Rfam assigns this 129-nucleotide RNA sequence to the family "Glutamine riboswitch aptamer (glnA leader)". On this family, see Ames and Breaker, RNA Biol 2011: "Bacterial aptamers that selectively bind glutamine". The family's consensus secondary structure is taken from published work. The sequence is in the family's curated seed alignment.

[Rfam]
RNA sequence: CACGUUCAUCUGGCACGAGUAAAAGUAGGUCAGACGGAAGUAGGCAGAUAAAAAUACAUCUCUUCAAAAAGAGAGGUUCGCAUCAAGCGUCCGCUUGUUGCAUUAAACAAUCUACCGAAGGAACGCAUU
Numbered sequence: 001c002a003c004g005u006u007c008a009u010c011u012g013g014c015a016c017g018a019g020u021a022a023a024a025g026u027a028g029g030u031c032a033g034a035c036g037g038a039a040g041u042a043g044g045c046a047g048a049u050a051a052a053a054a055u056a057c058a059u060c061u062c063u064u065c066a067a068a069a070a071g072a073g074a075g076g077u078u079c080g081c082a083u084c085a086a087g088c089g090u091c092c093g094c095u096u097g098u099u100g101c102a103u104u105a106a107a108c109a110a111u112c113u114a115c116c117g118a119a120g121g122a123a124c125g126c127a128u129u
Base pairs, nucleotide, nucleotide: 003125004124005123006122007121009034010033011032012031013030037126043116044115